[Rfam]
RNA sequence: UUUGUGUUGUAGUUUCGAUUUCCAUCUCUCUAAUGAAGUGGGGUUGUUCUAGUUUCCGAAGCAUAGAUAAAUUCGUAGUAUUAAACAGUUCGAUGUUGAUUUUUUUCUAUGGCAUCGUACCACCUGUCUUCUCCUACAUCU
Numbered sequence: 001u002u003u004g005u006g007u008u009g010u011a012g013u014u015u016c017g018a019u020u021u022c023c024a025u026c027u028c029u030c031u032a033a034u035g036a037a038g039u040g041g042g043g044u045u046g047u048u049c050u051a052g053u054u055u056c057c058g059a060a061g062c063a064u065a066g067a068u069a070a071a072u073u074c075g076u077a078g079u080a081u082u083a084a085a086c087a088g089u090u091c092g093a094u095g096u097u098g099a100u101u102u103u104u105u106u107c108u109a110u111g112g113c114a115u116c117g118u119a120c121c122a123c124c125u126g127u128c129u130u131c132u133c134c135u136a137c138a139u140c141u
Base pairs, nucleotide, nucleotide: 003063004062005061007059008058017049018048020046022043023042025041075134077132078131080129088120089119091117092116093115094114095113
small nucleolar RNA snoR137: a 141-nucleotide sequence from Salvia splendens. The family's consensus secondary structure was predicted with RNAalifold. The organism belongs to core Calosphace, within Eukaryota. For this family Rfam cites "Mining small RNA sequencing data: a new approach to identify small nucleolar RNAs in Arabidopsis" (Chen and Wu, Nucleic Acids Res, 2009). The family's RNA type in Rfam is H/ACA-box small nucleolar RNA.